Rfam assigns this 97-nucleotide sequence from Pseudocoprococcus catus to the family "SAM riboswitch aptamer (S box leader)". Rfam describes the family as follows. The SAM riboswitch is found upstream of a number of genes which code for proteins involved in methionine or cysteine biosynthesis in Gram-positive bacteria. The SAM riboswitch acts at the level of transcription termination control.

RNA sequence: CUCUUAUUCAGAGCAAUGGAGACCAAGGAUCUGUGAUAUUGCGGCAACCCCCAUGAGGAAGGUGCCAACCUGAGCGAGUAACAUCGAACAAUAAGAG
Numbered sequence: 001c002u003c004u005u006a007u008u009c010a011g012a013g014c015a016a017u018g019g020a021g022a023c024c025a026a027g028g029a030u031c032u033g034u035g036a037u038a039u040u041g042c043g044g045c046a047a048c049c050c051c052c053a054u055g056a057g058g059a060a061g062g063u064g065c066c067a068a069c070c071u072g073a074g075c076g077a078g079u080a081a082c083a084u085c086g087a088a089c090a091a092u093a094a095g096a097g
Stems, first nucleotide, its partner, number of pairs: 001097008013042005021031002028071001043066004048062002050058002075086003